[Rfam]
RNA: Histone 3' UTR stem-loop
RNA sequence: ACAACGGCUCUUUUAAGAGCCACCGAACAGCUUCAGAUGCAAAACGG
Numbered sequence: 001a002c003a004a005c006g007g008c009u010c011u012u013u014u015a016a017g018a019g020c021c022a023c024c025g026a027a028c029a030g031c032u033u034c035a036g037a038u039g040c041a042a043a044a045c046g047g
Stems, first nucleotide, its partner, number of pairs: 006021006